[Rfam]
RNA sequence: GAUGGAGAACUCCAAAGGGAUCGCAUUGAUCUCGAUGCCUUUCUCUCUCUUCUUUUCUUUUUCAUGAGAUCAUGCGAUCCCCUUGGAAUUUUCCGC
Numbered sequence: 001g002a003u004g005g006a007g008a009a010c011u012c013c014a015a016a017g018g019g020a021u022c023g024c025a026u027u028g029a030u031c032u033c034g035a036u037g038c039c040u041u042u043c044u045c046u047c048u049c050u051u052c053u054u055u056u057c058u059u060u061u062u063c064a065u066g067a068g069a070u071c072a073u074g075c076g077a078u079c080c081c082c083u084u085g086g087a088a089u090u091u092u093c094c095g096c
Stems, first nucleotide, its partner, number of pairs: 003095004008090002011087005017081005023075004028071005036064001

Shown here is a 96-nucleotide RNA sequence from Vanilla planifolia, a member of the family "mir-393 microRNA precursor family". A search with the family's covariance model found it, with a score of 75 bits.